[Rfam]
The family of this 111-nucleotide RNA sequence from Stackebrandtia nassauensis is "mraW RNA".

RNA sequence: AGGCUUCCGUACCGCCUGGUCCCCACCCGCCCACCGCGUACCUGACAUUCCUUCCCCGGUGCCAGGUAUGUGAUGGGGCGGUUGGGGUCCAGGCGAUACGGGCCAACGAGA
Numbered sequence: 001a002g003g004c005u006u007c008c009g010u011a012c013c014g015c016c017u018g019g020u021c022c023c024c025a026c027c028c029g030c031c032c033a034c035c036g037c038g039u040a041c042c043u044g045a046c047a048u049u050c051c052u053u054c055c056c057c058g059g060u061g062c063c064a065g066g067u068a069u070g071u072g073a074u075g076g077g078g079c080g081g082u083u084g085g086g087g088u089c090c091a092g093g094c095g096a097u098a099c100g101g102g103c104c105a106a107c108g109a110g111a
Stems, first nucleotide, its partner, number of pairs: 010098002013095004018090002021087005027081004031076003036071009046061003
Description:
The match comes from Rfam's covariance-model search (62 bits). The base pairs follow the family's consensus structure, which is taken from published work. Taxonomically the source falls in Stackebrandtia nassauensis (Bacteria, Bacillati, Actinomycetota, Stackebrandtia).